The family of this 114-nucleotide RNA sequence from Alteribacillus bidgolensis is "TPP riboswitch aptamer (THI element)". On this family, see Rodionov et al., J Biol Chem 2002: "Comparative genomics of thiamin biosynthesis in procaryotes. New genes and regulatory mechanisms".
[Rfam]
RNA sequence: AUGAUCCACUAGGGGCGCUGUGAUAGCUGAGAUGAUGCAAAUUGUUUUUGAAGCAUCGGUCCCUUUGAACCUGAUAUGGGUAAUACCAUCGUAGGAAAGUGGAGCGAAGACUUG
Dot-bracket structure: .....(((((((((.(((((...))))......(((((..............))))))..)))).....((((..((((......))))..))))..)))))............